About this RNA:
Rfam assigns this 66-nucleotide RNA sequence from Tursiops truncatus to the family "Selenocysteine insertion sequence 1".
RNA sequence: CCCGGUGUCCAUGAUGGUCUGCCUGAAAACCAGCCCCUAGUGGGGCAGACCCGAGAACCCGGCGUG
Numbered sequence: 001c002c003c004g005g006u007g008u009c010c011a012u013g014a015u016g017g018u019c020u021g022c023c024u025g026a027a028a029a030c031c032a033g034c035c036c037c038u039a040g041u042g043g044g045g046c047a048g049a050c051c052c053g054a055g056a057a058c059c060c061g062g063c064g065u066g
Stems, first nucleotide, its partner, number of pairs: 001066001003064002016051009031040001033038001
Taxonomically the source falls in Tursiops (Eukaryota, Chordata, Craniata, Euteleostomi). Rfam describes the family as follows. The incorporation of selenocysteine into a protein sequence is directed by an in-frame UGA codon (usually a stop codon) within the coding region of the mRNA. Selenoprotein mRNAs contain a conserved secondary structure in the 3' UTR that is required for the distinction of UGA stop from UGA selenocysteine. A search with the family's covariance model found it, with a score of 38 bits.